[Rfam]
Record summary
The record is a 262-nucleotide RNA sequence from [Clostridium] polysaccharolyticum, which matches "Bacterial large signal recognition particle RNA" in Rfam. The family's consensus secondary structure is taken from published work. By type it is a non-coding RNA gene. About the family: The signal recognition particle (SRP) is a universally conserved ribonucleoprotein involved in the co-translational targeting of proteins to membranes. The source organism's lineage runs through Bacteria, Bacillota, Clostridia, Lachnospiraceae and Lachnoclostridium.
RNA sequence: CCGUGCAGCUGGGGAGUUAGCGGUGCCCUGUACCUGCAAUCCGCUACAGCAGGAGUGAUGUCAUGCCCCGGAUUUGUUUUUGUAGAGCUGCCCUUUAUAAGUGGCGUUGACGUUCUGGUCUCGCGCAACAGGAAUCUGUGAACCGUGUCAGGUCGGGAACGAAGCAGCACUAAGCAGAGUGCCCUGUGUGCCGUGAGGGUGCUGGGACUGAGUUAACUGUAAAGGUAACGUCUGUGGAACUUUUUCAAAGCAUGAUGCACGG
Number, nucleotide and partner (000 for none) at each position: 001c262002c261003g260004u259005g258006c257007a256008g056009c055010u054011g029012g028013g027014g026015a000016g024017u023018u022019a000020g000021c000022g018023g017024u016025g000026c014027c013028c012029u011030g000031u000032a000033c053034c052035u051036g050037c049038a000039a000040u000041c000042c000043g000044c000045u000046a000047c000048a000049g037050c036051a035052g034053g033054a010055g009056u008057g000058a000059u000060g000061u255062c254063a253064u252065g251066c250067c000068c000069c000070g246071g245072a244073u000074u000075u000076g241077u000078u239079u238080u237081u236082g235083u234084a233085g232086a000087g000088c000089u227090g226091c000092c000093c224094u223095u222096u221097a220098u219099a000100a000101g217102u216103g214104g213105c212106g000107u000108u000109g000110a000111c000112g208113u207114u206115c205116u204117g203118g202119u201120c197121u196122c195123g194124c193125g192126c188127a187128a000129c186130a185131g184132g183133a000134a000135u178136c177137u176138g175139u174140g000141a000142a000143c000144c000145g170146u169147g168148u167149c000150a000151g000152g000153u162154c161155g160156g000157g000158a000159a000160c155161g154162a153163a000164g000165c000166a000167g148168c147169a146170c145171u000172a000173a000174g139175c138176a137177g136178a135179g000180u000181g000182c000183c132184c131185u130186g129187u127188g126189u000190g000191c000192c125193g124194u123195g122196a121197g120198g000199g000200u000201g119202c118203u117204g116205g115206g114207a113208c112209u000210g000211a000212g105213u104214u103215a000216a102217c101218u000219g098220u097221a096222a095223a094224g093225g000226u090227a089228a000229c000230g000231u000232c085233u084234g083235u082236g081237g080238a079239a078240c000241u076242u000243u000244u072245u071246c070247a000248a000249a000250g066251c065252a064253u063254g062255a061256u007257g006258c005259a004260c003261g002262g001